[Rfam]
RNA sequence: GUGUUACCACGAGUUCCCUUCAAGCACUUCAUGAGGCACCAUUAAAUAACUCUAUUUAAGAUUAGGUGUAAUAUGAAGUGUUUGGGGGAACUCUUGGUGAUAC
Numbered sequence: 001g002u003g004u005u006a007c008c009a010c011g012a013g014u015u016c017c018c019u020u021c022a023a024g025c026a027c028u029u030c031a032u033g034a035g036g037c038a039c040c041a042u043u044a045a046a047u048a049a050c051u052c053u054a055u056u057u058a059a060g061a062u063u064a065g066g067u068g069u070a071a072u073a074u075g076a077a078g079u080g081u082u083u084g085g086g087g088g089a090a091c092u093c094u095u096g097g098u099g100a101u102a103c
Stems, first nucleotide, its partner, number of pairs: 005099005011093010022083012036069001
Shown here is a 103-nucleotide RNA sequence from Sorghum bicolor, a member of the family "mir-395 microRNA precursor family". The base pairs follow the family's consensus structure, which was predicted with PFOLD. The family has 25 seed sequences and 2,798 matches in Rfam 15.1. Rfam links the family to the GO terms miRNA-mediated post-transcriptional gene silencing and RISC complex. mir-395 was identified in both Arabidopsis thaliana and Oryza sativa computationally and was later experimentally verified. mir-395 is thought to target mRNAs coding for ATP sulphurylases. The mature sequence is excised from the 3' arm of the hairpin.